[Rfam]
The family of this 76-nucleotide sequence from Prevotella sp. CAG:1092 is "Bacteroidetes FopS (family of paralogous sRNAs)". It is annotated as a small RNA. The base pairs follow the family's consensus structure, which is taken from published work. The literature on the family includes a 2025 paper in Nat Commun by Ruttiger et al., "The global RNA-binding protein RbpB is a regulator of polysaccharide utilization in Bacteroides thetaiotaomicron". Lineage of the source: Bacteria > Bacteroidota > Bacteroidia > Bacteroidales > Prevotella. Rfam 15.1 lists 822 matches to the family in 178 species.
RNA sequence: GUGUUUUUCAUGGUAUUAGAUUAUUAAGGUUACAAAAAAGGAUGGCUGUCGCGAGACACCCAUCCUUUGUUUUUUA
Numbered sequence: 001g002u003g004u005u006u007u008u009c010a011u012g013g014u015a016u017u018a019g020a021u022u023a024u025u026a027a028g029g030u031u032a033c034a035a036a037a038a039a040g041g042a043u044g045g046c047u048g049u050c051g052c053g054a055g056a057c058a059c060c061c062a063u064c065c066u067u068u069g070u071u072u073u074u075u076a
Base pairs, nucleotide, nucleotide: 044061045060047058048057049056050055